RNA sequence: AACGACAGUUGCCAAACCCGCCGUGAGGCGGGGACGGAAAGCCUAAGGGUCUUGUGCUGCAAGAUGGCCGGGUUGCCACG
Numbered sequence: 001a002a003c004g005a006c007a008g009u010u011g012c013c014a015a016a017c018c019c020g021c022c023g024u025g026a027g028g029c030g031g032g033g034a035c036g037g038a039a040a041g042c043c044u045a046a047g048g049g050u051c052u053u054g055u056g057c058u059g060c061a062a063g064a065u066g067g068c069c070g071g072g073u074u075g076c077c078a079c080g
Stems, first nucleotide, its partner, number of pairs: 012037002017032006040074004047069002049065007
RNA: c-di-GMP-I riboswitch aptamer